[Rfam]
The record is an 84-nucleotide RNA sequence from Desulfitobacterium hafniense, which matches "Group II catalytic intron D1-D4-1" in Rfam.
RNA sequence: UACCCCAUGCAGUGAUGUAUGGCUGAACAGUUGGAAGUCAGCAAAGUCAUGUACCAAGAUGGUCAUGAACAUCUUGGGAAGGAC
Numbered sequence: 001u002a003c004c005c006c007a008u009g010c011a012g013u014g015a016u017g018u019a020u021g022g023c024u025g026a027a028c029a030g031u032u033g034g035a036a037g038u039c040a041g042c043a044a045a046g047u048c049a050u051g052u053a054c055c056a057a058g059a060u061g062g063u064c065a066u067g068a069a070c071a072u073c074u075u076g077g078g079a080a081g082g083a084c
Stems, first nucleotide, its partner, number of pairs: 001025002005022007038044001046084003054077008
The sequence is in the family's curated seed alignment.
Rfam describes the family as follows. Group II introns are found in rRNA, tRNA and mRNA of organelles in fungi, plants and protists, and also in mRNA in bacteria.